This 169-nucleotide RNA from Pteropus alecto belongs to the Rfam family "TUC338". The match comes from Rfam's covariance-model search (121 bits). The literature on the family includes a 2011 paper in Proc Natl Acad Sci U S A by Braconi et al., "Expression and functional role of a transcribed noncoding RNA with an ultraconserved element in hepatocellular carcinoma". Pairs were carried over by alignment from the consensus structure, which was predicted with WAR.
[Rfam]
RNA sequence: UAGGAGGUGUGGAGACUGAAGUCCUCUCUAUUCCUACAGAACAAGUAUGGCACAGGCCGAGGCAGUGCAGCUUUUCCACUGUCCCACCCAUGUGCCUCAGUCCUAGCCGAGGGGGCCAUACUGAAGGUAAGAGGGCCAUUCAGUCUCCAUGCCCUUCAGUUUGGCUAAG
Numbered sequence: 001u002a003g004g005a006g007g008u009g010u011g012g013a014g015a016c017u018g019a020a021g022u023c024c025u026c027u028c029u030a031u032u033c034c035u036a037c038a039g040a041a042c043a044a045g046u047a048u049g050g051c052a053c054a055g056g057c058c059g060a061g062g063c064a065g066u067g068c069a070g071c072u073u074u075u076c077c078a079c080u081g082u083c084c085c086a087c088c089c090a091u092g093u094g095c096c097u098c099a100g101u102c103c104u105a106g107c108c109g110a111g112g113g114g115g116c117c118a119u120a121c122u123g124a125a126g127g128u129a130a131g132a133g134g135g136c137c138a139u140u141c142a143g144u145c146u147c148c149a150u151g152c153c154c155u156u157c158a159g160u161u162u163g164g165c166u167a168a169g
Base pairs, nucleotide, nucleotide: 003157004156006153007152010149011148012147013146014145015144016143017142018141019140020139023135024134026133027132029131031129033127034126038104039103041101047097050095051094052093053092054091061083062082063081064080065079110122113119